About this RNA: The record is a 90-nucleotide RNA sequence from Panicum virgatum, which matches "Small nucleolar RNA Z266" in Rfam. The literature on the family includes a 2003 paper in Nucleic Acids Res by Chen et al., "The high diversity of snoRNAs in plants: identification and comparative study of 120 snoRNA genes from Oryza sativa". The match comes from Rfam's covariance-model search (87 bits). The family's RNA type in Rfam is C/D-box small nucleolar RNA. Its family is annotated with RNA processing and nucleolus in the Gene Ontology.
[Rfam]
RNA sequence: GUUUGGAUGGAGUGAUGAAUCAAUUAGAUGUGCGAAAGUCUCUUUAUGAGCUUAACUUUUGAGGCAUACAUUAUGUCUGACCUCCCAAGC
Numbered sequence: 001g002u003u004u005g006g007a008u009g010g011a012g013u014g015a016u017g018a019a020u021c022a023a024u025u026a027g028a029u030g031u032g033c034g035a036a037a038g039u040c041u042c043u044u045u046a047u048g049a050g051c052u053u054a055a056c057u058u059u060u061g062a063g064g065c066a067u068a069c070a071u072u073a074u075g076u077c078u079g080a081c082c083u084c085c086c087a088a089g090c
Stems, first nucleotide, its partner, number of pairs: 001090006009082002
Dot-bracket structure: ((((((..((......................................................................))..))))))